Shown here is a 402-nucleotide RNA from Micrococcus terreus, a member of the family "Bacterial RNase P class A".
Its family is annotated with dimeric ribonuclease P complex, ribonuclease P activity and tRNA processing in the Gene Ontology.
Rfam classes the family as a ribozyme.
It scores 287 bits against the family's covariance model.

[Rfam]
RNA sequence: ACGGGCCGGCAGACGGCCGCGUGCCCCUCCCGUUCGCGGGAUGAGGGCACGAGGAACGUCCGGGCUCCACAGGGCAGGAUGGUGGCUAACGGCCACUCGGGGCAACCCGCAGGACAGUGCCACAGAAAGCAGACCGCCCGCCCGGUCGGUGUUCGCACCGAACGGCGCAGGUGAGGGUGAAAGGGUGGUGUAAGAGACCACCAGCGGCCCCGGUGACGGGGUCGGCUCGGUAAACCCCAUCCGGAGCAAGGCCGAACAGGAUGCGUUCGAAGGCUGCCCGCCUGAGCAUCCGGGUUGGCCGCUCGAGCCUGCCGGCAACGGCAGGCCUAGAUGGAUGGCCGUCACCUCGGCUGGAGCGAUCCGGCCGAGGCACAGAACCCGGCGUACCGCCGGCCCGUUCCC
Dot-bracket structure: ((((((((((.(((((((.(((((((.(..............).)))))))....[[[.[[[[[((((...[[[[.((((((((((.....)))))(((((....)))).)((...(((((............(((((.((.(.....................).)).)))..)).......((((((.......)))))).(((((((((....)))))))).)..)))..)))))))))))))...((((.....((((((......((((.]]]]))))..)))))).....))))......((((((((....))))))))..........)))))))..................................]]]]]]]]...))))))))))....